[Rfam]
RNA sequence: UCGGGCAGCUGUAAGUUUGCUGCUGUAAGCCCAGCUUUGGGCCGGUAUUUGGAUGAUGAAUUGCUUGAGACUGGGAUCACAUGUGCAGGGGUUACUUAGGUAUAUCGCCCGUUGGAAGCUUGGUGUUGACAUUCUACCUUUGACGUAAGUCUUUGGUAGGAGGCCAUUAAAUAAUUGUCUAUCGUAGGCCAGCAAUGGAACAACGAGAAUGAUGAUAGCACUAGGCAGUCUGGCGGAUCACGAGAAUUAGUUUGGGCCCUUGUACAUGCCAGCCUUGGGUGGAGACUCCCAUCCGCCU
Numbered sequence: 001u002c003g004g005g006c007a008g009c010u011g012u013a014a015g016u017u018u019g020c021u022g023c024u025g026u027a028a029g030c031c032c033a034g035c036u037u038u039g040g041g042c043c044g045g046u047a048u049u050u051g052g053a054u055g056a057u058g059a060a061u062u063g064c065u066u067g068a069g070a071c072u073g074g075g076a077u078c079a080c081a082u083g084u085g086c087a088g089g090g091g092u093u094a095c096u097u098a099g100g101u102a103u104a105u106c107g108c109c110c111g112u113u114g115g116a117a118g119c120u121u122g123g124u125g126u127u128g129a130c131a132u133u134c135u136a137c138c139u140u141u142g143a144c145g146u147a148a149g150u151c152u153u154u155g156g157u158a159g160g161a162g163g164c165c166a167u168u169a170a171a172u173a174a175u176u177g178u179c180u181a182u183c184g185u186a187g188g189c190c191a192g193c194a195a196u197g198g199a200a201c202a203a204c205g206a207g208a209a210u211g212a213u214g215a216u217a218g219c220a221c222u223a224g225g226c227a228g229u230c231u232g233g234c235g236g237a238u239c240a241c242g243a244g245a246a247u248u249a250g251u252u253u254g255g256g257c258c259c260u261u262g263u264a265c266a267u268g269c270c271a272g273c274c275u276u277g278g279g280u281g282g283a284g285a286c287u288c289c290c291a292u293c294c295g296c297c298u
Stems, first nucleotide, its partner, number of pairs: 001045003004024006011017001029042003050295006058287001061285002064282002066277004071272004080268008089259005095254001098251001105243003109236002112233005118226009127166002130163001132161007142151003167173001174216006189198003

The family of this 298-nucleotide RNA from Mortierella polycephala is "Metazoan signal recognition particle RNA". Pairs were carried over by alignment from the consensus structure, which is taken from published work. Rfam describes the family as follows. The signal recognition particle (SRP) is a universally conserved ribonucleoprotein. It is involved in the co-translational targeting of proteins to membranes. The family's RNA type in Rfam is non-coding RNA gene.